[Rfam]
Notes:
A member of the RNA family "Small nucleolar RNA SNORD113/SNORD114 family" from Camelus dromedarius, 75 nucleotides long. Rfam classes the family as a C/D-box small nucleolar RNA. Rfam describes the family as follows. The imprinted human domain at 14q32 contains two clusters of tandemly repeated small nucleolar RNAs named 14q(I) and 14q(II) snoRNAs.
RNA sequence: CGGCCCAGUGACGAUGACUGAUGGUAUAUGAGGCAUGGACGAUGAAUACUGUGUGUCUGAAACUCUGAGGUCCAA
Numbered sequence: 001c002g003g004c005c006c007a008g009u010g011a012c013g014a015u016g017a018c019u020g021a022u023g024g025u026a027u028a029u030g031a032g033g034c035a036u037g038g039a040c041g042a043u044g045a046a047u048a049c050u051g052u053g054u055g056u057c058u059g060a061a062a063c064u065c066u067g068a069g070g071u072c073c074a075a
Stems, first nucleotide, its partner, number of pairs: 002073002005070002
A search with the family's covariance model found it, with a score of 64 bits. The organism belongs to Camelus, within Eukaryota. Its Rfam clan is "SNORD74 clan".